Shown here is a 147-nucleotide RNA sequence from Phocoena sinus, a member of the family "FGF-1 internal ribosome entry site (IRES)". The family's consensus secondary structure is taken from published work.
RNA sequence: GACUCCAGGGGAAUAAGGGCAUUGCCUCCUUUGGUGAAGGCCACGCCCUUCCUCCCGCGGUGGCCUGCCUGCAGCGGUUCUGGUAGGACAGUGUGGAUGCCAUAGGCUACGCAGCUGCCAUCACCCAGAAAGAAAGUGCCCCAGAAG
Numbered sequence: 001g002a003c004u005c006c007a008g009g010g011g012a013a014u015a016a017g018g019g020c021a022u023u024g025c026c027u028c029c030u031u032u033g034g035u036g037a038a039g040g041c042c043a044c045g046c047c048c049u050u051c052c053u054c055c056c057g058c059g060g061u062g063g064c065c066u067g068c069c070u071g072c073a074g075c076g077g078u079u080c081u082g083g084u085a086g087g088a089c090a091g092u093g094u095g096g097a098u099g100c101c102a103u104a105g106g107c108u109a110c111g112c113a114g115c116u117g118c119c120a121u122c123a124c125c126c127a128g129a130a131a132g133a134a135a136g137u138g139c140c141c142c143a144g145a146a147g
Base pairs, nucleotide, nucleotide: 003147004146005144008142009141010140011139014133016049017048018047019046025040026039027038029036050129051128059125060124061120062119063118064117069114070113071112072111073108074107080095
Lineage of the source: Eukaryota > Gnathostomata > Whippomorpha > Cetacea > Phocoena.